This 117-nucleotide RNA from Anoxynatronum buryatiense belongs to the Rfam family "Molybdenum/Tungsten riboswitch aptamer (Moco RNA motif)". NCBI's taxonomy places the organism under Bacteria, Bacillati, Bacillota, Clostridia, Anoxynatronum. It scores 56 bits against the family's covariance model.
[Rfam]
RNA sequence: AAUGAAUAACAACUCCGAUCUUUUAAACCUUCCUUUAAAGAGUGGUUUAAAAGGCGAUGGGUAUCGCCGGAAACAGCGAUGCCUCCCAGUGUGGAAAGGAGGGGUAGAGAGCAAGGC
Number, nucleotide and partner (000 for none) at each position: 001a000002a000003u111004g000005a000006a000007u000008a000009a000010c000011a000012a000013c101014u100015c099016c098017g000018a000019u054020c053021u052022u051023u050024u049025a048026a047027a046028c045029c044030u000031u000032c000033c042034u041035u040036u000037a000038a000039a000040g035041a034042g033043u000044g029045g028046u027047u026048u025049a024050a023051a022052a021053g020054g019055c000056g000057a000058u000059g084060g083061g082062u081063a080064u079065c078066g077067c076068c000069g074070g000071a000072a000073a000074c069075a000076g067077c066078g065079a064080u063081g062082c061083c060084u059085c094086c093087c000088a000089g000090u000091g000092u000093g086094g085095a000096a000097a000098g016099g015100a014101g013102g000103g000104g000105u000106a000107g000108a000109g000110a000111g003112c000113a000114a000115g000116g000117c000
Gene Ontology terms of the family: molybdenum ion binding, regulation of gene expression and tungstate binding.